Annotation: A member of the RNA family "SAM (S-adenosyl methionine) riboswitch aptamer" from Paeniglutamicibacter cryotolerans, 117 nucleotides long. It scores 82 bits against the family's covariance model. About the family: SAM-IV is a mRNA element that regulates gene expression via direct sensing of S-adenosylmethionine (SAM or AdoMet). SAM-IV riboswitches share conserved nucleotide positions with the previously described SAM-I riboswitches sequence analysis and molecular recognition experiments suggest that SAM-I and SAM-IV riboswitches share similar ligand binding sites, but have different scaffolds. The literature on the family includes a 2008 paper in RNA by Weinberg et al., "The aptamer core of SAM-IV riboswitches mimics the ligand-binding site of SAM-I riboswitches". The family has 40 seed sequences and 2,360 matches in Rfam 15.1. NCBI's taxonomy places the organism under Bacteria, Actinomycetes, Micrococcales, Micrococcaceae, Paeniglutamicibacter.
[Rfam]
RNA sequence: GAUCAAGAGUUCCGGUGCUAAACCCUGGUUGGCCGGACGGCAACCCCCUGACACGUGGCGGGGUGCUCCAGGUGAGGAUCCGGCCCGCGCACGCACCGUGCCGGGCAAGUACGUGCG
Numbered sequence: 001g002a003u004c005a006a007g008a009g010u011u012c013c014g015g016u017g018c019u020a021a022a023c024c025c026u027g028g029u030u031g032g033c034c035g036g037a038c039g040g041c042a043a044c045c046c047c048c049u050g051a052c053a054c055g056u057g058g059c060g061g062g063g064u065g066c067u068c069c070a071g072g073u074g075a076g077g078a079u080c081c082g083g084c085c086c087g088c089g090c091a092c093g094c095a096c097c098g099u100g101c102c103g104g105g106c107a108a109g110u111a112c113g114u115g116c117g
Base pairs, nucleotide, nucleotide: 001080002079003078004077009038011037012036013035014034015033016032021030022029039067040066041065044063045062046061048058049057083106084105085104086103087102089101090100091099092098093097